[Rfam]
The family of this 85-nucleotide RNA from Ornithorhynchus anatinus is "mir-1422 microRNA precursor family". Gene Ontology terms of the family: miRNA-mediated post-transcriptional gene silencing and RISC complex. It scores 67 bits against the family's covariance model.

RNA sequence: AUGAUUCUGGUUUGUCAUGACAGGUUUUUUUUUUCCCCAGUACAUAUAAUCUGGAAAACCUUGUCAUGGCUAAUACCAUGAUCAU
Numbered sequence: 001a002u003g004a005u006u007c008u009g010g011u012u013u014g015u016c017a018u019g020a021c022a023g024g025u026u027u028u029u030u031u032u033u034u035c036c037c038c039a040g041u042a043c044a045u046a047u048a049a050u051c052u053g054g055a056a057a058a059c060c061u062u063g064u065c066a067u068g069g070c071u072a073a074u075a076c077c078a079u080g081a082u083c084a085u
Stems, first nucleotide, its partner, number of pairs: 003083004008078004013073001014070007027058006
Dot-bracket structure: ..((((.((((.((((((((......((((((....................)))))).....)))))))..).)))).))))..